[Rfam]
RNA: Small nucleolar RNA SNORD90
Organism: Eubucco bourcierii
RNA sequence: GAGAUUCCCUUUCUUGUGUCUUAUGAUGAAGCUUCAUAGGGCAGAUUCUGAGCUGAGAAAUAGAAUUUCUCUCCACUGAUUCUCUCUCUAUGACAUCUGAAGACAUUGUAUAUUUC
Numbered sequence: 001g002a003g004a005u006u007c008c009c010u011u012u013c014u015u016g017u018g019u020c021u022u023a024u025g026a027u028g029a030a031g032c033u034u035c036a037u038a039g040g041g042c043a044g045a046u047u048c049u050g051a052g053c054u055g056a057g058a059a060a061u062a063g064a065a066u067u068u069c070u071c072u073c074c075a076c077u078g079a080u081u082c083u084c085u086c087u088c089u090a091u092g093a094c095a096u097c098u099g100a101a102g103a104c105a106u107u108g109u110a111u112a113u114u115u116c
Base pairs, nucleotide, nucleotide: 014108016106017105018104019103020102021101031096034093035092036091037090039085040084041083044080047079048078050076052074055071056070057069058068059067060066